[Rfam]
RNA sequence: UGAAUCCGCGCGGGAGAGUCCCCCACUCGGCAACGCCAGCCGAGCCCCGGGGCGCCGAAGGAGCAAGUCCUCCCUUGAAUCUCUCAGGCCCCGAGUACCGCGCGGGCGAG
Numbered sequence: 001u002g003a004a005u006c007c008g009c010g011c012g013g014g015a016g017a018g019u020c021c022c023c024c025a026c027u028c029g030g031c032a033a034c035g036c037c038a039g040c041c042g043a044g045c046c047c048c049g050g051g052g053c054g055c056c057g058a059a060g061g062a063g064c065a066a067g068u069c070c071u072c073c074c075u076u077g078a079a080u081c082u083c084u085c086a087g088g089c090c091c092c093g094a095g096u097a098c099c100g101c102g103c104g105g106g107c108g109a110g
Base pairs, nucleotide, nucleotide: 006105007104008103009102010101011100012099013098020052021051022050023049054089055088056087057085058084061083062082063081067076